[Rfam]
RNA sequence: AUUUGUCGUCUUAUUUGAUUGAAAUAUUGUCCAAUCAAGAGAUACAGCAGUUAAAUCA
Numbered sequence: 001a002u003u004u005g006u007c008g009u010c011u012u013a014u015u016u017g018a019u020u021g022a023a024a025u026a027u028u029g030u031c032c033a034a035u036c037a038a039g040a041g042a043u044a045c046a047g048c049a050g051u052u053a054a055a056u057c058a
Stems, first nucleotide, its partner, number of pairs: 008045002012041001014039008